[Rfam]
Record summary:
Rfam assigns this 76-nucleotide sequence from Hippoglossus hippoglossus to the family "mir-129 microRNA precursor family". The literature on the family includes a 2002 paper in Curr Biol by Lagos-Quintana et al., "Identification of tissue-specific microRNAs from mouse". Rfam's curators put it in the seed alignment. Rfam links the family to the GO terms miRNA-mediated post-transcriptional gene silencing, synapse and gene silencing by miRNA. The base pairs follow the family's consensus structure, which was predicted with RNAalifold.
Nucleotides: 076
Base pairs, nucleotide, nucleotide: 007069008067009066010065011064012063013062015060016059017058020055021054022053023052025050027048028047
Number, partner (000 for none) and nucleotide at each position: 001000g002000u003000g004000g005000g006000u007069c008067u009066u010065u011064u012063u013062g014000c015060g016059g017058u018000c019000u020055g021054g022053g023052c024000u025050u026000g027048c028047u029000g030000u031000u032000c033000c034000u035000a036000a037000g038000g039000c040000a041000g042000u043000a044000g045000c046000c047028a048027g049000g050025a051000a052023g053022c054021c055020u056000u057000a058017a059016c060015c061000c062013c063012a064011a065010a066009a067008a068000c069007g070000u071000a072000a073000u074000c075000u076000g